[Rfam]
Overview
Rfam assigns this 46-nucleotide sequence from Anopheles gambiae to the family "Histone 3' UTR stem-loop". The organism belongs to Anopheles gambiae, within Eukaryota. From the family's description: The mRNAs of metazoan histone genes lack a poly-A tail. 3' end processing occurs at a site between a highly conserved stem-loop (modelled by this family) and a purine rich region around 20 nts downstream (the histone downstream element, or HDE). The stem-loop is bound by a 31 kDa stem-loop binding protein (SLBP - also termed the histone hairpin binding protein, or HBP). The base pairs follow the family's consensus structure, which is taken from published work. Rfam classes the family as a cis-regulatory element. The family has 50 seed sequences and 44,596 matches in Rfam 15.1. A reference for the family is Williams and Marzluff (1995), "The sequence of the stem and flanking sequences at the 3' end of histone mRNA are critical determinants for the binding of the stem-loop binding protein", Nucleic Acids Res.

RNA sequence: CAAACGGUCCUUUUCAGGACCACAAUACAUUACUCAAGAGCUGUGU
Number, nucleotide and partner (000 for none) at each position: 001c000002a000003a000004a000005c000006g021007g020008u019009c018010c017011u016012u000013u000014u000015c000016a011017g010018g009019a008020c007021c006022a000023c000024a000025a000026u000027a000028c000029a000030u000031u000032a000033c000034u000035c000036a000037a000038g000039a000040g000041c000042u000043g000044u000045g000046u000